Notes
A member of the RNA family "tRNA" from Nyssa sinensis, 74 nucleotides long. Taxonomically the source falls in Nyssa (Eukaryota, Streptophyta, eudicotyledons, asterids).

[Rfam]
RNA sequence: GCUCUUGUAGCUCAGUUGGUUAGAGCACCCGUUUAGUAAGCGGGAGGUCUUGAGUUCGACACUCACCAAGAGCA
Numbered sequence: 001g002c003u004c005u006u007g008u009a010g011c012u013c014a015g016u017u018g019g020u021u022a023g024a025g026c027a028c029c030c031g032u033u034u035a036g037u038a039a040g041c042g043g044g045a046g047g048u049c050u051u052g053a054g055u056u057c058g059a060c061a062c063u064c065a066c067c068a069a070g071a072g073c074a
Stems, first nucleotide, its partner, number of pairs: 001073007010026004028044005051065004
Rfam 15.1 lists 5,335,975 matches to the family in 14,413 species. Pairs were carried over by alignment from the consensus structure, which is taken from published work.